[Rfam]
RNA: Glycine riboswitch aptamer
RNA sequence: AUGAAGAUGAUGGGAGAGCCCGCUUUCACUGAGGAAGCGGCACCGAAGGAGCAAAGGGCCGGCACUGCAUGACGGCAAUGAAUCUCUCAGGUACCAGGACCAUGAUCCGACG
Number, nucleotide and partner (000 for none) at each position: 001a000002u000003g000004a000005a000006g107007a106008u105009g000010a103011u102012g101013g100014g000015a000016g000017a000018g000019c000020c040021c039022g038023c037024u036025u035026u034027c000028a000029c000030u000031g000032a000033g000034g026035a025036a024037g023038c022039g021040g020041c000042a092043c091044c090045g088046a087047a000048g000049g086050a085051g084052c000053a000054a000055a079056g000057g000058g000059c000060c000061g000062g000063c000064a000065c000066u000067g000068c000069a000070u000071g000072a000073c000074g000075g000076c000077a000078a000079u055080g000081a000082a000083u000084c051085u050086c049087u046088c045089a000090g044091g043092u042093a000094c000095c000096a000097g000098g000099a000100c013101c012102a011103u010104g000105a008106u007107c006108c000109g000110a000111c000112g000